[Rfam]
RNA sequence: UAAAUCGAAGAGGUUGCGACCAACAAGAGUCGGUUAGUCGAGUUGCUGUAUUGAAUGAUGACACUAACUAAAAGGGGCGGUCGCCGAAGCGCUGACAGAUUACAGCUGUCAGUUAGCUGGGACGUUGUUUAAGAAAUGACGGACUGUCGCGGGCUACGUGCUCGCGGGGCGCUAUCGAACUG
Numbered sequence: 001u002a003a004a005u006c007g008a009a010g011a012g013g014u015u016g017c018g019a020c021c022a023a024c025a026a027g028a029g030u031c032g033g034u035u036a037g038u039c040g041a042g043u044u045g046c047u048g049u050a051u052u053g054a055a056u057g058a059u060g061a062c063a064c065u066a067a068c069u070a071a072a073a074g075g076g077g078c079g080g081u082c083g084c085c086g087a088a089g090c091g092c093u094g095a096c097a098g099a100u101u102a103c104a105g106c107u108g109u110c111a112g113u114u115a116g117c118u119g120g121g122a123c124g125u126u127g128u129u130u131a132a133g134a135a136a137u138g139a140c141g142g143a144c145u146g147u148c149g150c151g152g153g154c155u156a157c158g159u160g161c162u163c164g165c166g167g168g169g170c171g172c173u174a175u176c177g178a179a180c181u182g
Stems, first nucleotide, its partner, number of pairs: 006177002009173002016084006024076001032069007088118003091113008119145002123141007147167007
Lysine riboswitch aptamer: a 182-nucleotide RNA sequence from Secundilactobacillus collinoides.